About this RNA
This 68-nucleotide sequence from Diatraea saccharalis belongs to the Rfam family "mir-33 microRNA precursor family". Taxonomically the source falls in Diatraea (Eukaryota, Arthropoda, Insecta, Neolepidoptera). On this family, see Li et al., BMC Genomics 2009: "Direct sequencing and expression analysis of a large number of miRNAs in Aedes aegypti and a multi-species survey of novel mosquito miRNAs". A search with the family's covariance model found it, with a score of 57 bits.
RNA sequence: CGGGAGUGCAUUGUAGUUGCAUUGCACUUGUUACCAAUUUGUGCAAUAUCACUACAAGGCAAAUCUCG
Number, nucleotide and partner (000 for none) at each position: 001c068002g067003g066004g065005a000006g064007u061008g060009c059010a000011u057012u056013g055014u054015a053016g052017u000018u000019g049020c000021a047022u046023u045024g044025c043026a042027c041028u000029u000030g000031u000032u000033a000034c000035c000036a000037a000038u000039u000040u000041g027042u026043g025044c024045a023046a022047u021048a000049u019050c000051a000052c016053u015054a014055c013056a012057a011058g000059g009060c008061a007062a000063a000064u006065c004066u003067c002068g001